[Rfam]
RNA sequence: UAUGUAGUGACGCGGAACUUGAGGGGAGAGGGCGGUAAACUUCUAGUCUGAGGAACACAAACUUCAUAAGAGUAUAGCUAUCGUUGGAUGAGUUUGCAAAACAAAGUCUAUCCUGCCAAAGGUGAUACAGAAUAAAUGAUGCAGAUAGGUGAAAGGAAAGGUUGUAUG
Numbered sequence: 001u002a003u004g005u006a007g008u009g010a011c012g013c014g015g016a017a018c019u020u021g022a023g024g025g026g027a028g029a030g031g032g033c034g035g036u037a038a039a040c041u042u043c044u045a046g047u048c049u050g051a052g053g054a055a056c057a058c059a060a061a062c063u064u065c066a067u068a069a070g071a072g073u074a075u076a077g078c079u080a081u082c083g084u085u086g087g088a089u090g091a092g093u094u095u096g097c098a099a100a101a102c103a104a105a106g107u108c109u110a111u112c113c114u115g116c117c118a119a120a121g122g123u124g125a126u127a128c129a130g131a132a133u134a135a136a137u138g139a140u141g142c143a144g145a146u147a148g149g150u151g152a153a154a155g156g157a158a159a160g161g162u163u164g165u166a167u168g
Base pairs, nucleotide, nucleotide: 001016003014004013005012029167031165036160040155041154042153044151045150046146047145048144049143050142062141064139065138066137067136075131079127080126081125082124083123084122086109087108088107089106092102093101094100095099
Shown here is a 168-nucleotide RNA from Bacillus solimangrovi, a member of the family "Group II catalytic intron D1-D4-3". The organism belongs to Bacillus, within Bacteria. Rfam 15.1 lists 4,274 matches to the family in 1,585 species.